[Rfam]
Selenocysteine transfer RNA: an 86-nucleotide RNA from Archangium sp. Cb G35. A reference for the family is Mizutani and Goto (2000), "Eukaryotic selenocysteine tRNA has the 9/4 secondary structure", FEBS Lett. Gene Ontology term of the family: triplet codon-amino acid adaptor activity. Rfam 15.1 lists 4,211 matches to the family in 3,344 species. A search with the family's covariance model found it, with a score of 48 bits. The organism belongs to Archangium, within Bacteria.
RNA sequence: UGGAGCAUGCAUGCCGGGUGGCCGGCAGCCUGGCUGGAAACCAGGUGGACCCUCCGGGGUCCGUGGUUCGACUCCACCGUGUUCCG
Numbered sequence: 001u002g003g004a005g006c007a008u009g010c011a012u013g014c015c016g017g018g019u020g021g022c023c024g025g026c027a028g029c030c031u032g033g034c035u036g037g038a039a040a041c042c043a044g045g046u047g048g049a050c051c052c053u054c055c056g057g058g059g060u061c062c063g064u065g066g067u068u069c070g071a072c073u074c075c076a077c078c079g080u081g082u083u084c085c086g
Stems, first nucleotide, its partner, number of pairs: 001086009012027006028046006048061005063077004